This 158-nucleotide RNA sequence from Sorghum bicolor belongs to the Rfam family "MIR2118 microRNA precursor family". A reference for the family is Xue et al. (2009), "Characterization and expression profiles of miRNAs in rice seeds", Nucleic Acids Res. The family's consensus secondary structure was predicted with RNAalifold. Rfam 15.1 lists 2,377 matches to the family in 45 species. The organism belongs to Sorghum, within Eukaryota.
[Rfam]
RNA sequence: GUUGGGAAGAUGAAGAAAAAGAGUAUCUAAGGGCGUUGGGCAUGGGAACAUGGAGGAAAGAAUGAGCUAUGAUCAAUAAGGGGGAUUCAAGUUCUUUUUCUUUCCCAAUGCCUCCCAUGCCUAUUGUUCUUAGGUGUUCCUUCCUCUUCCUGGGACUU
Numbered sequence: 001g002u003u004g005g006g007a008a009g010a011u012g013a014a015g016a017a018a019a020a021g022a023g024u025a026u027c028u029a030a031g032g033g034c035g036u037u038g039g040g041c042a043u044g045g046g047a048a049c050a051u052g053g054a055g056g057a058a059a060g061a062a063u064g065a066g067c068u069a070u071g072a073u074c075a076a077u078a079a080g081g082g083g084g085a086u087u088c089a090a091g092u093u094c095u096u097u098u099u100c101u102u103u104c105c106c107a108a109u110g111c112c113u114c115c116c117a118u119g120c121c122u123a124u125u126g127u128u129c130u131u132a133g134g135u136g137u138u139c140c141u142u143c144c145u146c147u148u149c150c151u152g153g154g155a156c157u158u
Base pairs, nucleotide, nucleotide: 009149010148012146013145015143016142017141021139022138023137026134027133028132029131030130031129032128033127034126035125037123038122039121040120041119042118043117044116045115046114047113049110050109051108053106055105056104057103058102059101060100061099
The match comes from Rfam's covariance-model search (126 bits).